[Rfam]
RNA: HDV ribozyme from F. prausnitzii
Organism: Allocoprococcus comes
RNA sequence: GCUGCUCGAAUGAAUCACACACCUCUUUGUGGUGAGUAGCAGGCAACGAUCUAAGAAUCAGGGAUCCGGUGAUCGGCUGAGAUGUGAAG
Numbered sequence: 001g002c003u004g005c006u007c008g009a010a011u012g013a014a015u016c017a018c019a020c021a022c023c024u025c026u027u028u029g030u031g032g033u034g035a036g037u038a039g040c041a042g043g044c045a046a047c048g049a050u051c052u053a054a055g056a057a058u059c060a061g062g063g064a065u066c067c068g069g070u071g072a073u074c075g076g077c078u079g080a081g082a083u084g085u086g087a088a089g
Stems, first nucleotide, its partner, number of pairs: 001040007021033003047075005